[Rfam]
RNA sequence: ACCAUUCGGCGGCGCUCCUCCUCCUCGCGUGCCGCCGGAGACUGGCGCCUCCUCCUCGACUGCCAGUCCUGCAAAUAGCGCCUGCCGAAUCCUCCCCCGGCAGGCGCUAUUU
Numbered sequence: 001a002c003c004a005u006u007c008g009g010c011g012g013c014g015c016u017c018c019u020c021c022u023c024c025u026c027g028c029g030u031g032c033c034g035c036c037g038g039a040g041a042c043u044g045g046c047g048c049c050u051c052c053u054c055c056u057c058g059a060c061u062g063c064c065a066g067u068c069c070u071g072c073a074a075a076u077a078g079c080g081c082c083u084g085c086c087g088a089a090u091c092c093u094c095c096c097c098c099g100g101c102a103g104g105c106g107c108u109a110u111u112u
Base pairs, nucleotide, nucleotide: 007037008036009035011033012032013029014028015027040068041067042066043065044064045063046062047061078107079106080105081104082103083102084101085100086099087098
Alphaproteobacterial ar14: a 112-nucleotide sequence from Pseudorhizobium banfieldiae. Smr14C2 was renamed NfeR1 (Nodule Formation Efficiency RNA) highly expressed in salt stress and during the symbiotic interaction on legume roots.